[Rfam]
RNA sequence: UUUAUAUGAUGAUUAGUCUUGUCUGAAUAAUAAAAAAAAUGAAGACAAUUGUACUGCCCCAAACUGAUUAAA
Dot-bracket structure: ((((................................................................))))
RNA: small nucleolar RNA snoR10
Organism: Plasmodium chabaudi